Description: Shown here is a 35-nucleotide RNA from Myotis myotis, a member of the family "Iron response element I". On this family, see Walden et al., Science 2006: "Structure of dual function iron regulatory protein 1 complexed with ferritin IRE-RNA". The match comes from Rfam's covariance-model search (41 bits).

RNA sequence: CUAUCUCUUGCUUCAACAGUGCUUGGACUGAACAG
Numbered sequence: 001c002u003a004u005c006u007c008u009u010g011c012u013u014c015a016a017c018a019g020u021g022c023u024u025g026g027a028c029u030g031a032a033c034a035g
Stems, first nucleotide, its partner, number of pairs: 001035002004032001006031002010028001012027005017021001